The record is a 91-nucleotide RNA sequence from Prochlorococcus marinus, which matches "ATPC RNA motif" in Rfam.
RNA sequence: CCAGGCCUAACCCCUCGGUCUGGCAAACUCCAUGCGCGCAGGUCCGGCUUGUUCGGGCCCAUCUCACAAUCUCCGAGAUGUCCCUGGCGCU
Numbered sequence: 001c002c003a004g005g006c007c008u009a010a011c012c013c014c015u016c017g018g019u020c021u022g023g024c025a026a027a028c029u030c031c032a033u034g035c036g037c038g039c040a041g042g043u044c045c046g047g048c049u050u051g052u053u054c055g056g057g058c059c060c061a062u063c064u065c066a067c068a069a070u071c072u073c074c075g076a077g078a079u080g081u082c083c084c085u086g087g088c089g090c091u
Stems, first nucleotide, its partner, number of pairs: 002018001004016002036090004041059007060080006
NCBI's taxonomy places the organism under Bacteria, Cyanophyceae, Synechococcales, Prochlorococcus, Prochlorococcus marinus. On this family, see Weinberg et al., Nucleic Acids Res 2007: "Identification of 22 candidate structured RNAs in bacteria using the CMfinder comparative genomics pipeline". The sequence is in the family's curated seed alignment.